This 347-nucleotide RNA sequence from Ruminococcus flavefaciens belongs to the Rfam family "Bacterial RNase P class A". Pairs were carried over by alignment from the consensus structure, which is taken from published work.
RNA sequence: UGAGCAGGCUAUGCGGUAGCGGAAACGUUUAGUUUACGAGGAAAGUCCGGGCAUCACAGAGCAGGGUAGCUGCUAACGGCAGCCGAGGGCGACCUUAGGGCAAGUGCAACAGAGAUAUACUGCCGUCCUUACGGGCGGUGAUGGUGGAAAGGCGAGGUAAGAGCUCACCGGAGUACAGGAGACUGUGCUGCCAUGUAAACCCUAUCCGAUGCAACGUCUAUUGGUGCCUGUUAUCAUAACGUCGGCUCGGCGGAUAACUGGUAAUGACGGCUUCAGCUUAUCGGCGACGAUAAGCGUAGAUAAAUUACCGCACACGACAGAACCCGGCUUAUCGGUCUGGUCAUAAA
Numbered sequence: 001u002g003a004g005c006a007g008g009c010u011a012u013g014c015g016g017u018a019g020c021g022g023a024a025a026c027g028u029u030u031a032g033u034u035u036a037c038g039a040g041g042a043a044a045g046u047c048c049g050g051g052c053a054u055c056a057c058a059g060a061g062c063a064g065g066g067u068a069g070c071u072g073c074u075a076a077c078g079g080c081a082g083c084c085g086a087g088g089g090c091g092a093c094c095u096u097a098g099g100g101c102a103a104g105u106g107c108a109a110c111a112g113a114g115a116u117a118u119a120c121u122g123c124c125g126u127c128c129u130u131a132c133g134g135g136c137g138g139u140g141a142u143g144g145u146g147g148a149a150a151g152g153c154g155a156g157g158u159a160a161g162a163g164c165u166c167a168c169c170g171g172a173g174u175a176c177a178g179g180a181g182a183c184u185g186u187g188c189u190g191c192c193a194u195g196u197a198a199a200c201c202c203u204a205u206c207c208g209a210u211g212c213a214a215c216g217u218c219u220a221u222u223g224g225u226g227c228c229u230g231u232u233a234u235c236a237u238a239a240c241g242u243c244g245g246c247u248c249g250g251c252g253g254a255u256a257a258c259u260g261g262u263a264a265u266g267a268c269g270g271c272u273u274c275a276g277c278u279u280a281u282c283g284g285c286g287a288c289g290a291u292a293a294g295c296g297u298a299g300a301u302a303a304a305u306u307a308c309c310g311c312a313c314a315c316g317a318c319a320g321a322a323c324c325c326g327g328c329u330u331a332u333c334g335g336u337c338u339g340g341u342c343a344u345a346a347a
Stems, first nucleotide, its partner, number of pairs: 001343003005339006011332001012312007020038002023035004043330003047327005052211004059248004064207005069083005084098001085096004099202002104200002106196003120143001122139007151169002154166003170191001171189001173188006215269004228260001230258004240252004276295008